[Rfam]
RNA sequence: UGAGAAAGCGCUUAGAAUUCUCAGCAGUUCAGUGGUGUUAAUAGCGUUCUCUCUGGCCUGAUGACGCGGUUAGUGAAUC
Number, nucleotide and partner (000 for none) at each position: 001u023002g022003a021004g020005a019006a018007a000008g000009c000010g000011c000012u000013u000014a000015g000016a000017a000018u006019u005020c004021u003022c002023a001024g000025c000026a000027g000028u000029u000030c000031a000032g000033u000034g000035g000036u000037g000038u073039u072040a071041a070042u069043a000044g067045c066046g065047u064048u063049c000050u061051c060052u000053c000054u000055g000056g000057c000058c000059u000060g051061a050062u000063g048064a047065c046066g045067c044068g000069g042070u041071u040072a039073g038074u000075g000076a000077a000078u000079c000